RNA: Bacterial small subunit ribosomal RNA, nucleotides 920 to 1506
Organism: Treponema ruminis
RNA sequence: UGACGGGGGCCCGCACAAGCGGUGGAGCAUGUGGUUUAAUUCGAUGGUACGCGAGGAACCUUACCUGGGUUUGACAUACAGGGGAAUUGCAUGGAGACAUGCAAGGCCGGCAACGGCUCCCUGAACAGGUGCUGCAUGGCUGUCGUCAGCUCGUGCCGUGAGGUGUUGGGUUAAGUCCCGCAACGAGCGCAACCCCUACCGUCAGUUGCCAUCGGGUAGAGCCGGGCACUCUGGCGGAACUGCCCCCGACAAGGGGGAGGAAGGCGGGGAUGACGUCAAGUCAUCAUGGCCCUUAUGUCCAGGGCUACACACGUGCUACAAUGGCGGGGACAGAGCGGAGCGAGGCAGUGAUGCGGAGCAGAGCGCAAAAAUCCCGCCGUAGUUCGGAUCGGAGUCUGAAACCCGACUCCGUGAAGCUGGAAUCGCUAGUAAUCGCGCAUCAGCACGGCGCGGUGAAUACGUUCCCGGGCCUUGUACACACCGCCCGUCACACCAUCCGAGCCGGGGAUACCCGAAGUGGGCAGGCUAACCGCAAGGGGGCCGCUCCCUAAGGUAUGACUGGUAAGGGGGGUGAAGUCGUAACAAGG
Numbered sequence: 001u002g003a004c005g006g007g008g009g010c011c012c013g014c015a016c017a018a019g020c021g022g023u024g025g026a027g028c029a030u031g032u033g034g035u036u037u038a039a040u041u042c043g044a045u046g047g048u049a050c051g052c053g054a055g056g057a058a059c060c061u062u063a064c065c066u067g068g069g070u071u072u073g074a075c076a077u078a079c080a081g082g083g084g085a086a087u088u089g090c091a092u093g094g095a096g097a098c099a100u101g102c103a104a105g106g107c108c109g110g111c112a113a114c115g116g117c118u119c120c121c122u123g124a125a126c127a128g129g130u131g132c133u134g135c136a137u138g139g140c141u142g143u144c145g146u147c148a149g150c151u152c153g154u155g156c157c158g159u160g161a162g163g164u165g166u167u168g169g170g171u172u173a174a175g176u177c178c179c180g181c182a183a184c185g186a187g188c189g190c191a192a193c194c195c196c197u198a199c200c201g202u203c204a205g206u207u208g209c210c211a212u213c214g215g216g217u218a219g220a221g222c223c224g225g226g227c228a229c230u231c232u233g234g235c236g237g238a239a240c241u242g243c244c245c246c247c248g249a250c251a252a253g254g255g256g257g258a259g260g261a262a263g264g265c266g267g268g269g270a271u272g273a274c275g276u277c278a279a280g281u282c283a284u285c286a287u288g289g290c291c292c293u294u295a296u297g298u299c300c301a302g303g304g305c306u307a308c309a310c311a312c313g314u315g316c317u318a319c320a321a322u323g324g325c326g327g328g329g330a331c332a333g334a335g336c337g338g339a340g341c342g343a344g345g346c347a348g349u350g351a352u353g354c355g356g357a358g359c360a361g362a363g364c365g366c367a368a369a370a371a372u373c374c375c376g377c378c379g380u381a382g383u384u385c386g387g388a389u390c391g392g393a394g395u396c397u398g399a400a401a402c403c404c405g406a407c408u409c410c411g412u413g414a415a416g417c418u419g420g421a422a423u424c425g426c427u428a429g430u431a432a433u434c435g436c437g438c439a440u441c442a443g444c445a446c447g448g449c450g451c452g453g454u455g456a457a458u459a460c461g462u463u464c465c466c467g468g469g470c471c472u473u474g475u476a477c478a479c480a481c482c483g484c485c486c487g488u489c490a491c492a493c494c495a496u497c498c499g500a501g502c503c504g505g506g507g508a509u510a511c512c513c514g515a516a517g518u519g520g521g522c523a524g525g526c527u528a529a530c531c532g533c534a535a536g537g538g539g540g541c542c543g544c545u546c547c548c549u550a551a552g553g554u555a556u557g558a559c560u561g562g563u564a565a566g567g568g569g570g571g572u573g574a575a576g577u578c579g580u581a582a583c584a585a586g587g
Base pairs, nucleotide, nucleotide: 001478002477003475004474005473007472008471009470010469011468012467013466015462016461019426020425021424022423023422024319026317027316028315029314030313031312032311033310034308035307040055041054042053043052064303065302066301067300068299069298070297077125080122081121082120083119084118087104088103089102090101091100092099093098106117107116108115109114128292129291131290132289133288134287137286138285139281140280141279142277144275145274149188150187151186152185153184154183155164156163157162167180168179169178170177194269195268196267197266199237200236201235202234203233204232205231209226210225213224214223215222240260241259243257244256245255246254247253323378324377325376326375327374328373329372335366336365337364340359341358345354346353347352385416390411391410392409393408394407395406396405432454433453434452435451436450437449438448481586483583486579487578491573492572493571494570496568497567498566501563502562503561504560505559508556509555510554511553512552517548519546520545521544522543524542525541526540527539530537531536